[Rfam]
RNA sequence: AUGGUUGCUUAUUCUGGUAAAAUCUUUUUUUAUAUUGAAGUUGGGGAUGUUCAUGUUUUCGAAGUCUAUAUCGAAUUUUCUUAAUUAACCAAUUUUAAACAGCGUAUUGUAAUAUUUUUUGAGUUACAUUAUGCUACAUGUCUACUGGUACAAUC
Numbered sequence: 001a002u003g004g005u006u007g008c009u010u011a012u013u014c015u016g017g018u019a020a021a022a023u024c025u026u027u028u029u030u031u032a033u034a035u036u037g038a039a040g041u042u043g044g045g046g047a048u049g050u051u052c053a054u055g056u057u058u059u060c061g062a063a064g065u066c067u068a069u070a071u072c073g074a075a076u077u078u079u080c081u082u083a084a085u086u087a088a089c090c091a092a093u094u095u096u097a098a099a100c101a102g103c104g105u106a107u108u109g110u111a112a113u114a115u116u117u118u119u120u121g122a123g124u125u126a127c128a129u130u131a132u133g134c135u136a137c138a139u140g141u142c143u144a145c146u147g148g149u150a151c152a153a154u155c
Base pairs, nucleotide, nucleotide: 003066004065005064006063008061018053020051021050023047024046025045026044027043088149089148090147091146093144101135102134103133105131106130108128109127